[Rfam]
RNA sequence: CUCCAGUGAUGACCUUUUGAGUACCAUGUGUCUGGGCCACUGAGAUACUGUGAUGGAGCUGAGGUUCUGAGGAG
Numbered sequence: 001c002u003c004c005a006g007u008g009a010u011g012a013c014c015u016u017u018u019g020a021g022u023a024c025c026a027u028g029u030g031u032c033u034g035g036g037c038c039a040c041u042g043a044g045a046u047a048c049u050g051u052g053a054u055g056g057a058g059c060u061g062a063g064g065u066u067c068u069g070a071g072g073a074g
Base pairs, nucleotide, nucleotide: 001074002073003072004071

The family of this 74-nucleotide sequence from Monodelphis domestica is "Small nucleolar RNA SNORD66". Rfam's curators write: snoRNA HBII-142 is part of the C/D family of snoRNAs. Gene Ontology terms of the family: nucleolus and RNA processing. Taxonomically the source falls in Monodelphis (Eukaryota, Deuterostomia, Craniata, Didelphimorphia). The sequence is in the family's curated seed alignment. The base pairs follow the family's consensus structure, which was predicted with RNAalifold. On this family, see Huttenhofer et al., EMBO J 2001: "RNomics: an experimental approach that identifies 201 candidates for novel, small, non-messenger RNAs in mouse".